[Rfam]
The record is a 79-nucleotide sequence, which matches "RAGATH-18 RNA" in Rfam.
RNA sequence: CCUAUGGAGAGUAUAAAAAAAAUGUGAGUAGUAUUUAGAUUUAUUAUUCAAUACAAAAACAUACUCGGCGAAAUAGGAA
Numbered sequence: 001c002c003u004a005u006g007g008a009g010a011g012u013a014u015a016a017a018a019a020a021a022a023u024g025u026g027a028g029u030a031g032u033a034u035u036u037a038g039a040u041u042u043a044u045u046a047u048u049c050a051a052u053a054c055a056a057a058a059a060c061a062u063a064c065u066c067g068g069c070g071a072a073a074u075a076g077g078a079a
Base pairs, nucleotide, nucleotide: 001077002076003075004074005073009066010065011064012063013062023061024060025059031054032053033052034051035050

Rfam describes the family as follows. Actinobacteria, Firmicutes, Fusobacteria, Thermotogae (1 example).